Rfam assigns this 85-nucleotide RNA from Fusibacter sp. A1 to the family "c-di-GMP-I riboswitch aptamer". Pairs were carried over by alignment from the consensus structure, which is taken from published work. Lineage of the source: Bacteria > Bacillati > Clostridia > Fusibacteraceae > Fusibacter. GEMM was predicted in a large-scale screen for bacterial structured RNA regulatory elements. Genes associated with GEMM are involved in a diverse array of functions, including chemotaxis regulation, signal transduction, secretion and chitin. Gene Ontology term of the family: cyclic-di-GMP binding.
RNA sequence: UCGAAUAAUGAGCAAAUCAACUGAAAGGUUGAGACGCAAAGCCAUGGGUCUAAGGUGUUUAAGCUAUGAUUGCCAGGUUGCCGUU
Numbered sequence: 001u002c003g004a005a006u007a008a009u010g011a012g013c014a015a016a017u018c019a020a021c022u023g024a025a026a027g028g029u030u031g032a033g034a035c036g037c038a039a040a041g042c043c044a045u046g047g048g049u050c051u052a053a054g055g056u057g058u059u060u061a062a063g064c065u066a067u068g069a070u071u072g073c074c075a076g077g078u079u080g081c082c083g084u085u
Base pairs, nucleotide, nucleotide: 012037013036017032018031019030020029021028022027040079041078042077043076045075046074047073048070049069050068055064056063